About this RNA: Shown here is a 70-nucleotide RNA from Octopus sinensis, a member of the family "mir-1994 microRNA precursor family". Pairs were carried over by alignment from the consensus structure, which was predicted with RNAalifold.
[Rfam]
RNA sequence: GCUAAGAGUGGACACUCUGUUCUACAUGUUGAAAAAUACUGACCAUGAGACAGUGUGUCCUCCCUUGGCA
Numbered sequence: 001g002c003u004a005a006g007a008g009u010g011g012a013c014a015c016u017c018u019g020u021u022c023u024a025c026a027u028g029u030u031g032a033a034a035a036a037u038a039c040u041g042a043c044c045a046u047g048a049g050a051c052a053g054u055g056u057g058u059c060c061u062c063c064c065u066u067g068g069c070a
Stems, first nucleotide, its partner, number of pairs: 002068002006063001008061001010059002013057003017053003021050003026046003
Description:
Lineage of the source: Eukaryota > Bilateria > Protostomia > Incirrata > Octopus. Rfam 15.1 lists 26 matches to the family in 16 species.